[Rfam]
RNA sequence: GCUGGGAGUCGUGGCGUACUCCUGUAAUCCAGCUACUUGGAGGCGGGAAGUCGAGGAUGGUUUGAGGCUGGGAGUCCUGCUGCGCAGUGAGUCAUGUUGACUGGGCGUCCGCACGAAGCUCGUCGUCAAUAUGGAUACCUUGGAGGAGUCCGAGGUAGCCAGGUUGGUUUAGGAGGGGCGGACCGGGCCAGGGGGGUAACCCAGCAGCCAAAAGUCCCCGCGGUGUGCAGUCGUGGGAUCGCGCCCGGGAGUGGGAGCUGCGUGGCAGCCCGGCCAAUAAAGUCAGACCGACUUCCAU
Numbered sequence: 001g002c003u004g005g006g007a008g009u010c011g012u013g014g015c016g017u018a019c020u021c022c023u024g025u026a027a028u029c030c031a032g033c034u035a036c037u038u039g040g041a042g043g044c045g046g047g048a049a050g051u052c053g054a055g056g057a058u059g060g061u062u063u064g065a066g067g068c069u070g071g072g073a074g075u076c077c078u079g080c081u082g083c084g085c086a087g088u089g090a091g092u093c094a095u096g097u098u099g100a101c102u103g104g105g106c107g108u109c110c111g112c113a114c115g116a117a118g119c120u121c122g123u124c125g126u127c128a129a130u131a132u133g134g135a136u137a138c139c140u141u142g143g144a145g146g147a148g149u150c151c152g153a154g155g156u157a158g159c160c161a162g163g164u165u166g167g168u169u170u171a172g173g174a175g176g177g178g179c180g181g182a183c184c185g186g187g188c189c190a191g192g193g194g195g196g197u198a199a200c201c202c203a204g205c206a207g208c209c210a211a212a213a214g215u216c217c218c219c220g221c222g223g224u225g226u227g228c229a230g231u232c233g234u235g236g237g238a239u240c241g242c243g244c245c246c247g248g249g250a251g252u253g254g255g256a257g258c259u260g261c262g263u264g265g266c267a268g269c270c271c272g273g274c275c276a277a278u279a280a281a282g283u284c285a286g287a288c289c290g291a292c293u294u295c296c297a298u
Base pairs, nucleotide, nucleotide: 001044002043003042004023005022006021007020008019009018028041029040030039046296047295048294049293050292051291052290053289058285059284060283061282062281063280066275067274068273069272070271071270072269077268078267079266080265081264082263083262084261085260086259087258088257092254093253094252095251097249101248102247103246104245105244106243107242108241109237110236112235113234114233115232116231118228119227121225122224123223124222125221126220127166128165129164130163132161133160134159136157137156138155139154140153141152142151143150144149168172175218176217177216178215179214186209187208188207193202194201195200
This 298-nucleotide RNA sequence from Frankliniella occidentalis belongs to the Rfam family "Metazoan signal recognition particle RNA". It scores 265 bits against the family's covariance model. About the family: The signal recognition particle (SRP) is a universally conserved ribonucleoprotein. Rfam links the family to the GO terms SRP-dependent cotranslational protein targeting to membrane, signal sequence recognition and signal recognition particle, endoplasmic reticulum targeting. A reference for the family is Wild et al. (2002), "Towards the structure of the mammalian signal recognition particle", Curr Opin Struct Biol. The family's consensus secondary structure is taken from published work.